RNA sequence: GGGGACCUUCGGGGCCCUUCAUCGACCGGACCCGCAGGUGCGGUGUCCCGCAAAGCAAACGGAAAGACAGUAA
Numbered sequence: 001g002g003g004g005a006c007c008u009u010c011g012g013g014g015c016c017c018u019u020c021a022u023c024g025a026c027c028g029g030a031c032c033c034g035c036a037g038g039u040g041c042g043g044u045g046u047c048c049c050g051c052a053a054a055g056c057a058a059a060c061g062g063a064a065a066g067a068c069a070g071u072a073a
Stems, first nucleotide, its partner, number of pairs: 001018004006014003028048004033043001